[Rfam]
Nucleotides: 129
Stems, first nucleotide, its partner, number of pairs: 002056004007051002013045008022035003069122002072119001082111002085104001087102001089100003092096001
Number, partner (000 for none) and nucleotide at each position: 001000g002056g003055g004054g005053u006000g007051u008050g009000c010000u011000c012000a013045g014044a015043g016042c017041a018040g019039g020038g021000u022035g023034c024033c025000u026000g027000a028000a029000u030000a031000a032000u033024g034023g035022c036000u037000c038020c039019u040018c041017u042016g043015u044014u045013u046000a047000u048000a049000a050008c051007a052000g053005a054004c055003c056002c057000a058000a059000c060000a061000g062000g063000a064000a065000c066000u067000u068000g069122g070121g071000u072119u073000u074000a075000c076000u077000c078000c079000u080000c081000a082111c083110a084000g085104g086000u087102g088000g089100c090099a091098a092096g093000a094000u095000a096092c097000u098091u099090u100089g101000g102087c103000c104085u105000u106000c107000c108000u109000g110083u111082g112000a113000c114000a115000u116000c117000a118000u119072g120000c121070c122069c123000u124000a125000u126000a127000c128000a129000u
The record is a 129-nucleotide RNA sequence from Gulo gulo, which matches "Small nucleolar RNA SNORA11" in Rfam. The family's consensus secondary structure was predicted with RNAalifold. The source organism's lineage runs through Eukaryota, Craniata, Vertebrata, Eutheria and Gulo. Gene Ontology terms of the family: RNA processing and nucleolus. From the family's description: U107 (SNORA11) is a member of the H/ACA class of snoRNAs that guide the sites of modification of uridines to pseudouridines. This snoRNA was identified by RT-PCR from blood cells and its expression confirmed by Northern blot analysis. By type it is an H/ACA-box small nucleolar RNA. On this family, see Gu et al., Nucleic Acids Res 2005: "A novel experimental approach for systematic identification of box H/ACA snoRNAs from eukaryotes".